[Rfam]
RNA sequence: AACCACGGACGGCCGUGGCACUGAUGAAUAAAGGCGGGACGGCCCGC
Numbered sequence: 001a002a003c004c005a006c007g008g009a010c011g012g013c014c015g016u017g018g019c020a021c022u023g024a025u026g027a028a029u030a031a032a033g034g035c036g037g038g039a040c041g042g043c044c045c046g047c
Stems, first nucleotide, its partner, number of pairs: 003018006034047005
The family of this 47-nucleotide RNA sequence from Stutzerimonas stutzeri is "Guanidine-II riboswitch aptamer (mini-ykkC)". On this family, see Weinberg et al., Nucleic Acids Res 2007: "Identification of 22 candidate structured RNAs in bacteria using the CMfinder comparative genomics pipeline". NCBI's taxonomy places the organism under Bacteria, Pseudomonadati, Pseudomonadota, Gammaproteobacteria, Stutzerimonas stutzeri. About the family: Simpler in structure and has fewer highly conserved nucleotide positions than the ykkC-yxkD leader. Despite this each of its two stem-loop structures directly bind free guanidine.